Annotation
Rfam assigns this 114-nucleotide RNA sequence from Hermetia illucens to the family "Potassium channel RNA editing signal". NCBI's taxonomy places the organism under Eukaryota, Bilateria, Pancrustacea, Pterygota, Hermetia. Gene Ontology term of the family: adenosine to inosine editing. The base pairs follow the family's consensus structure, which is taken from published work.

RNA sequence: GUGGGCUACGGAGAUAUGGCUCCAAAAACGUAUAUCGGUAUGUUUGUUGGAGCAUUGUGUGCUUUGGCUGGUGUAUUAACGAUUGCACUGCCCGUGCCCGUCAUUGUUAGCAAC
Numbered sequence: 001g002u003g004g005g006c007u008a009c010g011g012a013g014a015u016a017u018g019g020c021u022c023c024a025a026a027a028a029c030g031u032a033u034a035u036c037g038g039u040a041u042g043u044u045u046g047u048u049g050g051a052g053c054a055u056u057g058u059g060u061g062c063u064u065u066g067g068c069u070g071g072u073g074u075a076u077u078a079a080c081g082a083u084u085g086c087a088c089u090g091c092c093c094g095u096g097c098c099c100g101u102c103a104u105u106g107u108u109a110g111c112a113a114c
Base pairs, nucleotide, nucleotide: 001114002113004111008107009106010105011104013102014101015100018097021094037077038076039075040074049063050062